This 79-nucleotide RNA sequence from Mesocricetus auratus belongs to the Rfam family "Small nucleolar RNA SNORD115".
NCBI's taxonomy places the organism under Eukaryota, Metazoa, Euarchontoglires, Cricetinae, Mesocricetus.

[Rfam]
RNA sequence: GGGACAAUGACGACAAACCUACAUCAUCAAUAGAGGUGAUGACAUAAAUAUUAUGCUCUGGUUCCGGCUGCUGAGGCCC
Numbered sequence: 001g002g003g004a005c006a007a008u009g010a011c012g013a014c015a016a017a018c019c020u021a022c023a024u025c026a027u028c029a030a031u032a033g034a035g036g037u038g039a040u041g042a043c044a045u046a047a048a049u050a051u052u053a054u055g056c057u058c059u060g061g062u063u064c065c066g067g068c069u070g071c072u073g074a075g076g077c078c079c
Base pairs, nucleotide, nucleotide: 001079002078003077005073006072008070009069